Record summary: Rfam assigns this 91-nucleotide RNA sequence from Turicibacter sp. H121 to the family "Glycine riboswitch aptamer". The pairing is the family consensus, mapped onto this sequence. Lineage of the source: Bacteria > Bacillati > Bacillota > Erysipelotrichales > Turicibacter. A search with the family's covariance model found it, with a score of 65 bits. Its family is annotated with glycine biosynthetic process in the Gene Ontology.

RNA sequence: GGACGGAACUCUGGAGAGACCUAUUGAUUAGGCGCCGAAGGGGCAAGGCAGUGAUGCUCAAUCUCUCAGGCAAAAGGACAGGGAUAUUAUC
Numbered sequence: 001g002g003a004c005g006g007a008a009c010u011c012u013g014g015a016g017a018g019a020c021c022u023a024u025u026g027a028u029u030a031g032g033c034g035c036c037g038a039a040g041g042g043g044c045a046a047g048g049c050a051g052u053g054a055u056g057c058u059c060a061a062u063c064u065c066u067c068a069g070g071c072a073a074a075a076g077g078a079c080a081g082g083g084a085u086a087u088u089a090u091c
Base pairs, nucleotide, nucleotide: 007085009083010082011081012080013079020032021031022030023029034071035070036069037067038066041065042064043063047058048057